Small nucleolar RNA Z157/R69/R10: a 100-nucleotide RNA sequence from Brassica carinata.
Its Rfam clan is "SNORD52 clan".
Pairs were carried over by alignment from the consensus structure, which was predicted with PFOLD.
NCBI's taxonomy places the organism under Eukaryota, Streptophytina, Euphyllophyta, eudicotyledons, Brassica.
It scores 85 bits against the family's covariance model.
Gene Ontology terms of the family: nucleolus and RNA processing.
[Rfam]
Nucleotides: 100
Base pairs, nucleotide, nucleotide: 001100002099003098005096006095007094008093039072041070042069046065047063048062049061050060051059
Number, partner (000 for none) and nucleotide at each position: 001100g002099g003098g004000u005096a006095u007094a008093u009000g010000a011000u012000g013000a014000u015000g016000a017000u018000a019000c020000a021000a022000u023000a024000u025000g026000u027000u028000g029000u030000g031000g032000a033000c034000u035000a036000g037000a038000g039072u040000u041070u042069c043000a044000g045000a046065u047063c048062u049061g050060g051059g052000c053000u054000c055000u056000u057000c058000u059051c060050c061049c062048a063047g064000a065046a066000g067000u068000u069042g070041a071000c072039g073000a074000g075000u076000a077000a078000c079000c080000c081000u082000u083000g084000g085000c086000u087000g088000u089000c090000u091000g092000a093008g094007u095006a096005u097000u098003c099002c100001c